[Rfam]
RNA sequence: CACCCGCUGCGGCCAGCGUCGAUCAAGGGGGACGCGGCCGGAAUUGGAACAGGGCCGGCCAGGUACGCAGCGGGGAAGCACGGGGCCGGAUGUCGGGGGACAUCCGGCCCCAUUUUU
Numbered sequence: 001c002a003c004c005c006g007c008u009g010c011g012g013c014c015a016g017c018g019u020c021g022a023u024c025a026a027g028g029g030g031g032a033c034g035c036g037g038c039c040g041g042a043a044u045u046g047g048a049a050c051a052g053g054g055c056c057g058g059c060c061a062g063g064u065a066c067g068c069a070g071c072g073g074g075g076a077a078g079c080a081c082g083g084g085g086c087c088g089g090a091u092g093u094c095g096g097g098g099g100a101c102a103u104c105c106g107g108c109c110c111c112a113u114u115u116u117u
Stems, first nucleotide, its partner, number of pairs: 003074009012064002016035005036060006045052001082111013
Dot-bracket structure: ..(((((((((((..(((((..........)))))((((((...(......)..))))))..)).))))))))).......(((((((((((((....)))))))))))))......